[Rfam]
RNA sequence: UAAACCGGCGAGAACCAUUUGAAUCAAGUAGUGUAAUGAUUCACAUGGUUCUCACAA
Numbered sequence: 001u002a003a004a005c006c007g008g009c010g011a012g013a014a015c016c017a018u019u020u021g022a023a024u025c026a027a028g029u030a031g032u033g034u035a036a037u038g039a040u041u042c043a044c045a046u047g048g049u050u051c052u053c054a055c056a057a
Stems, first nucleotide, its partner, number of pairs: 008055001010053009020043007
This 57-nucleotide sequence from Actinidia arguta belongs to the Rfam family "Plastid-ccsA-ndhD-1 3UTR RNA".
From the family's description: Plastid-ccsA-ndhD-1 is a non-coding RNA (ncRNA) recognised in plastids. It was found in the three prime untranslated region (3UTR) of ccsA and ndhD genes, its 3UTR location suggests a role in transcript maturation.
Rfam's curators put it in the seed alignment.
Clan: Plastid-ccsA_ndhD 3UTR RNA clan.